[Rfam]
RNA sequence: CUAGAAAAAGGCAAACUUGUCGAAAGGCAAGGACGCAAAGCUAAAGGGGCUAAAGAUAACCUAUGCCAGCCAGUUGCCUAUG
Numbered sequence: 001c002u003a004g005a006a007a008a009a010g011g012c013a014a015a016c017u018u019g020u021c022g023a024a025a026g027g028c029a030a031g032g033a034c035g036c037a038a039a040g041c042u043a044a045a046g047g048g049g050c051u052a053a054a055g056a057u058a059a060c061c062u063a064u065g066c067c068a069g070c071c072a073g074u075u076g077c078c079u080a081u082g
Stems, first nucleotide, its partner, number of pairs: 001082001003079002011036002016031006034069001039075004046071002048067003

c-di-GMP-I-GGC riboswitch aptamer: an 82-nucleotide sequence from Radiobacillus deserti. Rfam 15.1 lists 1,298 matches to the family in 717 species. Lineage of the source: Bacteria > Bacillati > Bacilli > Bacillaceae > Radiobacillus.